Actino-pnp RNA: a 71-nucleotide RNA sequence. The family's RNA type in Rfam is cis-regulatory element.
[Rfam]
RNA sequence: GCCGGUCCUCGGUAGUGGUACCCGGAGAGCCCGUCGGGGCGUCGUACCGGGUACUUCGAUCGAAGACCGGC
Numbered sequence: 001g002c003c004g005g006u007c008c009u010c011g012g013u014a015g016u017g018g019u020a021c022c023c024g025g026a027g028a029g030c031c032c033g034u035c036g037g038g039g040c041g042u043c044g045u046a047c048c049g050g051g052u053a054c055u056u057c058g059a060u061c062g063a064a065g066a067c068c069g070g071c
Stems, first nucleotide, its partner, number of pairs: 001071007009063005017055009027045001029043001